[Rfam]
RNA: Glycine riboswitch aptamer
RNA sequence: GGAUGCGGCUCUGGAGAACGCCCCGCAGGGGGGGCUGCCGAAGGUGCAACGCGUGCGGCUGGGGGCCGCGCGCCAAUCUCUCAGGCAAAAGGACAGAGUUUGGGGA
Numbered sequence: 001g002g003a004u005g006c007g008g009c010u011c012u013g014g015a016g017a018a019c020g021c022c023c024c025g026c027a028g029g030g031g032g033g034g035c036u037g038c039c040g041a042a043g044g045u046g047c048a049a050c051g052c053g054u055g056c057g058g059c060u061g062g063g064g065g066c067c068g069c070g071c072g073c074c075a076a077u078c079u080c081u082c083a084g085g086c087a088a089a090a091g092g093a094c095a096g097a098g099u100u101u102g103g104g105g106a
Stems, first nucleotide, its partner, number of pairs: 007100007020035004037086003040082002044080001046078001051073010